[Rfam]
Nucleotides: 083
Base pairs, nucleotide, nucleotide: 009076011074012073014071016069017068018067019066020065021064022063030054031053032052035050036049037048038047
Number, partner (000 for none) and nucleotide at each position: 001000c002000g003000g004000g005000c006000g007000g008000c009076g010000u011074c012073a013000c014071c015000g016069c017068g018067c019066g020065c021064u022063a023000c024000u025000c026000c027000g028000g029000c030054g031053c032052c033000g034000g035050g036049g037048c038047u039000g040000u041000u042000c043000a044000a045000c046000g047038a048037g049036u050035c051000a052032g053031g054030u055000a056000c057000c058000u059000g060000a061000a062000g063022u064021a065020g066019c067018g068017c069016g070000c071014g072000g073012u074011g075000u076009c077000u078000c079000u080000g081000c082000u083000c
mir-275 microRNA precursor family: an 83-nucleotide sequence from Vanessa tameamea. The base pairs follow the family's consensus structure, which was predicted with RNAalifold. The organism belongs to Vanessa, within Eukaryota. Rfam links the family to the GO terms miRNA-mediated post-transcriptional gene silencing and RISC complex. It scores 68 bits against the family's covariance model. The literature on the family includes a 2007 paper in Nucleic Acids Res by Winter et al., "Anopheles gambiae miRNAs as actors of defence reaction against Plasmodium invasion".